[Rfam]
RNA sequence: CCCAAAUAUUAUAUUUUUUCUAUAAAAGGAAAAAAAAUGGAAAAAAAGGG
Numbered sequence: 001c002c003c004a005a006a007u008a009u010u011a012u013a014u015u016u017u018u019u020c021u022a023u024a025a026a027a028g029g030a031a032a033a034a035a036a037a038u039g040g041a042a043a044a045a046a047a048g049g050g
Stems, first nucleotide, its partner, number of pairs: 014046010
The family of this 50-nucleotide sequence from Phyllostomus discolor is "KRAS 3' UTR cis-regulatory element". The source organism's lineage runs through Eukaryota, Opisthokonta, Vertebrata, Phyllostominae and Phyllostomus. A reference for the family is Kim et al. (2016), "Cis-acting elements in its 3' UTR mediate post-transcriptional regulation of KRAS", Oncotarget. Rfam's curators write: AU-rich 49 nt fragment in KRAS 3'UTR. Its sequence but not the secondary is necessary and sufficient for reporter repression in HeLa cells. The family's consensus secondary structure was predicted with RNAfold.